[Rfam]
RNA sequence: AGGUUCUACCAAGUCCGACCGCGGGGUUACGUGCAGAGUCCCUGGUGACUCCAAACACCCUGGGGAAGGUCCCCGGAUCUCUGGUAGAAAGUACCGCCGGAUGUUUCCGGUUAGUCGUAGACGACGUCGCACAAGAUGGGUUAUUCGGUGUGCGGCAUGUUUGCGAUGUUGGUCAUAUCAAAGACAUGUCGGAACCACGUUUGGCAACACAACGGGGCCCACUCUGGUAGAACU
Numbered sequence: 001a002g003g004u005u006c007u008a009c010c011a012a013g014u015c016c017g018a019c020c021g022c023g024g025g026g027u028u029a030c031g032u033g034c035a036g037a038g039u040c041c042c043u044g045g046u047g048a049c050u051c052c053a054a055a056c057a058c059c060c061u062g063g064g065g066a067a068g069g070u071c072c073c074c075g076g077a078u079c080u081c082u083g084g085u086a087g088a089a090a091g092u093a094c095c096g097c098c099g100g101a102u103g104u105u106u107c108c109g110g111u112u113a114g115u116c117g118u119a120g121a122c123g124a125c126g127u128c129g130c131a132c133a134a135g136a137u138g139g140g141u142u143a144u145u146c147g148g149u150g151u152g153c154g155g156c157a158u159g160u161u162u163g164c165g166a167u168g169u170u171g172g173u174c175a176u177a178u179c180a181a182a183g184a185c186a187u188g189u190c191g192g193a194a195c196c197a198c199g200u201u202u203g204g205c206a207a208c209a210c211a212a213c214g215g216g217g218c219c220c221a222c223u224c225u226g227g228u229a230g231a232a233c234u
Base pairs, nucleotide, nucleotide: 002234003233004232005231006230007229008228009227010226011225014193015192016191017190018189019188022062023061024060025059026058027057036051037050038049039048040047068219069218071217072216073215074214083095084094085093086092096111097110098109099108100107101106113167115165121160122159126156127155128154129153130152131151132150138146139145140144195204196203197202

RNase MRP: a 234-nucleotide RNA sequence from Brassicogethes aeneus. Its family is annotated with ribonuclease MRP complex, ribonuclease MRP activity and rRNA processing in the Gene Ontology. From the family's description: RNase MRP is an enzymatically active ribonucleoprotein with two distinct roles in eukaryotes. In mitochondria it plays a direct role in the initiation of mitochondrial DNA replication. The family's consensus secondary structure is taken from published work.